[Rfam]
RNA sequence: GUGACAGAAGAGAGUGAGCAUCCAUGGUUACUUUCUUGGAUGAGAUCUCAUGCUUGAAGCUAUGUGUGCUCGCUUCUCUAUCUGUCAU
Numbered sequence: 001g002u003g004a005c006a007g008a009a010g011a012g013a014g015u016g017a018g019c020a021u022c023c024a025u026g027g028u029u030a031c032u033u034u035c036u037u038g039g040a041u042g043a044g045a046u047c048u049c050a051u052g053c054u055u056g057a058a059g060c061u062a063u064g065u066g067u068g069c070u071c072g073c074u075u076c077u078c079u080a081u082c083u084g085u086c087a088u
Stems, first nucleotide, its partner, number of pairs: 001088008010078003013074009023064003
The record is an 88-nucleotide RNA sequence from Asparagus officinalis, which matches "mir-156 microRNA precursor family" in Rfam.
This family represents the plant microRNA (miRNA) precursor mir-156.
The family's consensus secondary structure was predicted with PFOLD.